[Rfam]
RNA sequence: CGAUACCACGUGGGAGAGACCCUCAGCGGGCGCCGACGGGGCAAUACUCCCCAGUAACCUCUCAGGCAAAAGGACCGCGUGGAGGAG
Numbered sequence: 001c002g003a004u005a006c007c008a009c010g011u012g013g014g015a016g017a018g019a020c021c022c023u024c025a026g027c028g029g030g031c032g033c034c035g036a037c038g039g040g041g042c043a044a045u046a047c048u049c050c051c052c053a054g055u056a057a058c059c060u061c062u063c064a065g066g067c068a069a070a071a072g073g074a075c076c077g078c079g080u081g082g083a084g085g086a087g
Stems, first nucleotide, its partner, number of pairs: 006082008020030003032067003035063002039061003045054001
The record is an 87-nucleotide sequence from Haloactinospora alba, which matches "Glycine riboswitch aptamer" in Rfam.
The pairing is the family consensus, mapped onto this sequence.
The source organism's lineage runs through Bacteria, Bacillati, Streptosporangiales, Nocardiopsidaceae and Haloactinospora.
A search with the family's covariance model found it, with a score of 66 bits.